[Rfam]
RNA sequence: UCGGUUCUUUUUUUAGUUCCUUGCUUCUCCUGGAUGACCGAGCCAAAUAGAGAAGCUGAUUAAUCCGUAAGGAGCAACCAAUG
Dot-bracket structure: ...............(((((((((((((..(((.........))).....))))))............)))))))........

About this RNA
RpsF leader: an 83-nucleotide RNA from Photobacterium proteolyticum. The pairing is the family consensus, mapped onto this sequence. Conserved and widely distributed to many bacterial species RNA structure. It precedes operon containing rpsF, which encodes ribosomal protein S6. The motif also precedes operon containing rpsR, which encodes ribosomal protein S18. The family's RNA type in Rfam is cis-regulatory leader. It scores 44 bits against the family's covariance model.